[Rfam]
RNA sequence: AAAGGUGCGGCGGCCCUCAAGGAUAACCCCACCUGAAGGAAACCGGGGUGACCCGGGAGUACGAGGGUGGGGUACGGGGUCGCCGCUUACGUCCAGAAACACGA
Numbered sequence: 001a002a003a004g005g006u007g008c009g010g011c012g013g014c015c016c017u018c019a020a021g022g023a024u025a026a027c028c029c030c031a032c033c034u035g036a037a038g039g040a041a042a043c044c045g046g047g048g049u050g051a052c053c054c055g056g057g058a059g060u061a062c063g064a065g066g067g068u069g070g071g072g073u074a075c076g077g078g079g080u081c082g083c084c085g086c087u088u089a090c091g092u093c094c095a096g097a098a099a100c101a102c103g104a
Base pairs, nucleotide, nucleotide: 007086008085009084010083011082012081013080014079015078016077021075028071029070030069031068032067033066034065038062043056044055045054046053047052090103091102092101
RNA: Archaeal large subunit ribosomal RNA, nucleotides 753 to 856